RNA: Selenocysteine transfer RNA
Nucleotides: 095
Stems, first nucleotide, its partner, number of pairs: 001095007008087001011027006030044004048069007072086004
Number, partner (000 for none) and nucleotide at each position: 001095g002094g003093g004092a005091a006090u007089a008087g009000c010000u011027g012026u013025a014024u015023c016022c017000a018000u019000g020000g021000u022016g023015g024014a025013u026012g027011c028000c029000a030044c031043a032042g033041a034000c035000u036000u037000c038000a039000a040000a041033u042032c043031u044030g045000a046000u047000g048069g049068c050067a051066g052065g053064u054063g055000a056000c057000u058000u059000a060000a061000g062000u063054u064053a065052u066051c067050u068049g069048u070000g071000g072086u073085g074084g075083g076000u077000u078000c079000g080000a081000u082000u083075c084074c085073c086072a087008c088000a089007u090006a091005u092004u093003c094002c095001c